Rfam assigns this 72-nucleotide RNA sequence from Ascoidea rubescens to the family "tRNA". Taxonomically the source falls in Ascoidea rubescens (Eukaryota, Opisthokonta, Dikarya, Ascoideaceae). Transfer RNA (tRNA) molecules are approximately 80 nucleotides in length. The match comes from Rfam's covariance-model search (60 bits).
[Rfam]
RNA sequence: GCUCUCUUGGCCAAGUGGUAAGGCAUCGCACUCGUAAUGCGGGGAUCGCUGGUUCAAACCCGGCAGUGAGCA
Numbered sequence: 001g002c003u004c005u006c007u008u009g010g011c012c013a014a015g016u017g018g019u020a021a022g023g024c025a026u027c028g029c030a031c032u033c034g035u036a037a038u039g040c041g042g043g044g045a046u047c048g049c050u051g052g053u054u055c056a057a058a059c060c061c062g063g064c065a066g067u068g069a070g071c072a
Base pairs, nucleotide, nucleotide: 001071002070003069004068006066007065010024011023012022026042027041028040029039030038048064049063050062051061052060